[Rfam]
RNA sequence: CGCGGGGCACAGCAGACCUUGUGACAGGAGCGGAGGAACCACAGGUUUCUCCGGGGGUCCGACGCAACGAUUUCGGACUCCCUUGGGGUGAAGUUCUUACCCCGAUCGCGUACACCGCGAACGGGGCGAGAACCGGGCAUCAACCUCCCCGCCCGAACCCGACAGCUAACUUCGUAGGCGCGGAGAGGUACA
Numbered sequence: 001c002g003c004g005g006g007g008c009a010c011a012g013c014a015g016a017c018c019u020u021g022u023g024a025c026a027g028g029a030g031c032g033g034a035g036g037a038a039c040c041a042c043a044g045g046u047u048u049c050u051c052c053g054g055g056g057g058u059c060c061g062a063c064g065c066a067a068c069g070a071u072u073u074c075g076g077a078c079u080c081c082c083u084u085g086g087g088g089u090g091a092a093g094u095u096c097u098u099a100c101c102c103c104g105a106u107c108g109c110g111u112a113c114a115c116c117g118c119g120a121a122c123g124g125g126g127c128g129a130g131a132a133c134c135g136g137g138c139a140u141c142a143a144c145c146u147c148c149c150c151g152c153c154c155g156a157a158c159c160c161g162a163c164a165g166c167u168a169a170c171u172u173c174g175u176a177g178g179c180g181c182g183g184a185g186a187g188g189u190a191c192a
Stems, first nucleotide, its partner, number of pairs: 001027001030175006040085002086160003094132004135154004

The record is a 192-nucleotide RNA sequence from Humibacillus xanthopallidus, which matches "c-di-AMP riboswitch aptamer (ydaO/yuaA leader)" in Rfam. The organism belongs to Humibacillus, within Bacteria.